[Rfam]
RNA sequence: ACACGAAAGAUAAUCGCUGCAUGUAAAUGUAGAGGAAAGUCCAUGCUCGCACAAUCUGAGAUGGUUGUAGUGUUUGUGCUUGGUGAAAAAAUAAGCCAAGGUAUAGAGGCAUCUAUAACGGCGGAUCAACAUCCUAAGGGAAACUAUGGAUCGAGACUAUAAAAGUGCCACAGUGACGAAGUUUCAUUCGAAAGAGUGAAAGUGGAACGAGGUAAACCCCAUAAGCGAGAAACCCAAAAUUGGUAGGGGAGCUUGCAAGAUCGAAUUCAAGAUUAAGCAGGGUGAAAUAUAUAUUUCACAGAUAAAUGAUUAUCACGACAGGACAUGGCUUAUUG
Numbered sequence: 001a002c003a004c005g006a007a008a009g010a011u012a013a014u015c016g017c018u019g020c021a022u023g024u025a026a027a028u029g030u031a032g033a034g035g036a037a038a039g040u041c042c043a044u045g046c047u048c049g050c051a052c053a054a055u056c057u058g059a060g061a062u063g064g065u066u067g068u069a070g071u072g073u074u075u076g077u078g079c080u081u082g083g084u085g086a087a088a089a090a091a092u093a094a095g096c097c098a099a100g101g102u103a104u105a106g107a108g109g110c111a112u113c114u115a116u117a118a119c120g121g122c123g124g125a126u127c128a129a130c131a132u133c134c135u136a137a138g139g140g141a142a143a144c145u146a147u148g149g150a151u152c153g154a155g156a157c158u159a160u161a162a163a164a165g166u167g168c169c170a171c172a173g174u175g176a177c178g179a180a181g182u183u184u185c186a187u188u189c190g191a192a193a194g195a196g197u198g199a200a201a202g203u204g205g206a207a208c209g210a211g212g213u214a215a216a217c218c219c220c221a222u223a224a225g226c227g228a229g230a231a232a233c234c235c236a237a238a239a240u241u242g243g244u245a246g247g248g249g250a251g252c253u254u255g256c257a258a259g260a261u262c263g264a265a266u267u268c269a270a271g272a273u274u275a276a277g278c279a280g281g282g283u284g285a286a287a288u289a290u291a292u293a294u295u296u297c298a299c300a301g302a303u304a305a306a307u308g309a310u311u312a313u314c315a316c317g318a319c320a321g322g323a324c325a326u327g328g329c330u331u332a333u334u335g
Stems, first nucleotide, its partner, number of pairs: 008333001009314007017032006037331003041328005046229005051068006074224005079100006101119001102117006120219002124158001131151004138145002165217002167213003182201008233248003252281005282299006